[Rfam]
The family of this 132-nucleotide RNA sequence from Alkaliphilus peptidifermentans is "Ribosomal protein L10 leader". It scores 66 bits against the family's covariance model. This family is a putative r-protein leader autoregulatory structure found in B. subtilis and other low-GC Gram-positive bacteria. It is located in the 5' untranslated regions of mRNAs encoding ribosomal proteins L10 and L12 (rplJ-rplL). A Rho-independent transcription terminator structure that is probably involved in regulation is included at the 3' end. The source organism's lineage runs through Bacteria, Bacillati, Clostridia, Natronincolaceae and Alkaliphilus peptidifermentans.

RNA sequence: UUGAAAGUGAAUAUUUUGCCACAGAAAGUAGGUGCGAAAGCUUAAAUAUCCUACCGAGGCUUAUGAUAAAUGCGUAAUGCAAAUUCAGGCCUCGUUAUGUCUAAACAUAAAGAGGCCUUUAUAUUUUUCAGG
Numbered sequence: 001u002u003g004a005a006a007g008u009g010a011a012u013a014u015u016u017u018g019c020c021a022c023a024g025a026a027a028g029u030a031g032g033u034g035c036g037a038a039a040g041c042u043u044a045a046a047u048a049u050c051c052u053a054c055c056g057a058g059g060c061u062u063a064u065g066a067u068a069a070a071u072g073c074g075u076a077a078u079g080c081a082a083a084u085u086c087a088g089g090c091c092u093c094g095u096u097a098u099g100u101c102u103a104a105a106c107a108u109a110a111a112g113a114g115g116c117c118u119u120u121a122u123a124u125u126u127u128u129c130a131g132g
Stems, first nucleotide, its partner, number of pairs: 028054005034041002088117006095110006